[Rfam]
RNA sequence: ACCCCUUCAAGAGCUAAGCCACCCUCGGUCGGUGAGUGCCGGAGAUAAGCGCCGGAUGGGGUUGAGGCC
Numbered sequence: 001a002c003c004c005c006u007u008c009a010a011g012a013g014c015u016a017a018g019c020c021a022c023c024c025u026c027g028g029u030c031g032g033u034g035a036g037u038g039c040c041g042g043a044g045a046u047a048a049g050c051g052c053c054g055g056a057u058g059g060g061g062u063u064g065a066g067g068c069c
Stems, first nucleotide, its partner, number of pairs: 002061004013037003039055004044050001
Dot-bracket structure: .((((.......(((...................))).((((.(.....).))))..))))........
The family of this 69-nucleotide RNA sequence from Shimwellia blattae is "rydB RNA". The organism belongs to Shimwellia blattae, within Bacteria. This family consists of several bacterial sequences from E. coli, Shigella flexneri and Salmonella species.